[Rfam]
This 212-nucleotide part of an RNA from Cytospora chrysosperma belongs to the Rfam family "Ascomycota telomerase RNA". Rfam 15.1 lists 475 matches to the family in 456 species. Its Rfam clan is "Telomerase clan". Its family is annotated with telomere maintenance via telomerase, telomerase catalytic core complex and telomerase activity in the Gene Ontology. It scores 442 bits against the family's covariance model.
RNA sequence: UCCCCCACAGUUCUCCGAUUCUCGUUUUCCGCAAGGAAUGUCCGCAAGGGCCUCUCUGCUGGGCUGGGUCGCCACAAUACGUCGCGUCUCGUACCUGUAUCAGGAAUCUCGAUGAUCGCCGCGCUUGGAUCUAUUGUGCCACCGUUGUCAGCAACUGACAAGCCAGUUCCCAGCGAGGGUACGGGUCUCGGAACUUAACCCUAAGUAAUCGG
Numbered sequence: 001u002c003c004c005c006c007a008c009a010g011u012u013c014u015c016c017g018a019u020u021c022u023c024g025u026u027u028u029c030c031g032c033a034a035g036g037a038a039u040g041u042c043c044g045c046a047a048g049g050g051c052c053u054c055u056c057u058g059c060u061g062g063g064c065u066g067g068g069u070c071g072c073c074a075c076a077a078u079a080c081g082u083c084g085c086g087u088c089u090c091g092u093a094c095c096u097g098u099a100u101c102a103g104g105a106a107u108c109u110c111g112a113u114g115a116u117c118g119c120c121g122c123g124c125u126u127g128g129a130u131c132u133a134u135u136g137u138g139c140c141a142c143c144g145u146u147g148u149c150a151g152c153a154a155c156u157g158a159c160a161a162g163c164c165a166g167u168u169c170c171c172a173g174c175g176a177g178g179g180u181a182c183g184g185g186u187c188u189c190g191g192a193a194c195u196u197a198a199c200c201c202u203a204a205g206u207a208a209u210c211g212g
Stems, first nucleotide, its partner, number of pairs: 009195003015191004